The family of this 91-nucleotide RNA from Paenibacillus sp. OAS669 is "c-di-GMP-I riboswitch aptamer". Rfam links the family to the GO term cyclic-di-GMP binding. It scores 68 bits against the family's covariance model.
[Rfam]
RNA sequence: AUCUCGAAAAGGCAAAGCAGGUGAAAGCUUGUGACGCAAAGCUACAGGGGCUACGAAUCCUCGCAGAGGUUCUUGCCAGCCAGCUGCCGAA
Numbered sequence: 001a002u003c004u005c006g007a008a009a010a011g012g013c014a015a016a017g018c019a020g021g022u023g024a025a026a027g028c029u030u031g032u033g034a035c036g037c038a039a040a041g042c043u044a045c046a047g048g049g050g051c052u053a054c055g056a057a058u059c060c061u062c063g064c065a066g067a068g069g070u071u072c073u074u075g076c077c078a079g080c081c082a083g084c085u086g087c088c089g090a091a
Stems, first nucleotide, its partner, number of pairs: 012037002017032006040085004047081002049077003056071004
Dot-bracket structure: ...........((...((((((....))))))...))..((((...(((((....((((........))))...)))..))))))......